[Rfam]
RNA sequence: AGUAAAGAUAGAGGCGCGUGCUUUAAAAGUAGCCAUCGGGAUCAGGGCAAGCUGAUGUGAUGGGUGGUGAAAGGGAAGGACGCCGAAGGGCAUGGUAUUUGUCGAUCAUGUUCCUGGGCUCAUUGUUAAGAGCAAUGGGACUGUCAUCGGAAGAUGGAGUGCUAUCAAUCUC
Numbered sequence: 001a002g003u004a005a006a007g008a009u010a011g012a013g014g015c016g017c018g019u020g021c022u023u024u025a026a027a028a029g030u031a032g033c034c035a036u037c038g039g040g041a042u043c044a045g046g047g048c049a050a051g052c053u054g055a056u057g058u059g060a061u062g063g064g065u066g067g068u069g070a071a072a073g074g075g076a077a078g079g080a081c082g083c084c085g086a087a088g089g090g091c092a093u094g095g096u097a098u099u100u101g102u103c104g105a106u107c108a109u110g111u112u113c114c115u116g117g118g119c120u121c122a123u124u125g126u127u128a129a130g131a132g133c134a135a136u137g138g139g140a141c142u143g144u145c146a147u148c149g150g151a152a153g154a155u156g157g158a159g160u161g162c163u164a165u166c167a168a169u170c171u172c
Stems, first nucleotide, its partner, number of pairs: 007166005016083004021078004032068006039061001087115003090111007116142002119139008144157005